Shown here is a 62-nucleotide RNA from Nyctereutes procyonoides, a member of the family "Gag/pol translational readthrough site". Rfam links the family to the GO term viral translational readthrough. The literature on the family includes a 1990 paper in Virus Genes by ten Dam et al., "RNA pseudoknots: translational frameshifting and readthrough on viral RNAs". NCBI's taxonomy places the organism under Eukaryota, Sarcopterygii, Tetrapoda, Amniota, Nyctereutes. The family's consensus secondary structure is taken from published work.
[Rfam]
RNA sequence: UAGGGGUGUCAGGGCCAGGAACCACGCCCUGAGCCUCGGAUAACCCUUAAAGUGGGGGGACA
Numbered sequence: 001u002a003g004g005g006g007u008g009u010c011a012g013g014g015c016c017a018g019g020a021a022c023c024a025c026g027c028c029c030u031g032a033g034c035c036u037c038g039g040a041u042a043a044c045c046c047u048u049a050a051a052g053u054g055g056g057g058g059g060a061c062a
Stems, first nucleotide, its partner, number of pairs: 008041003012036004016031004023059001025057001027055001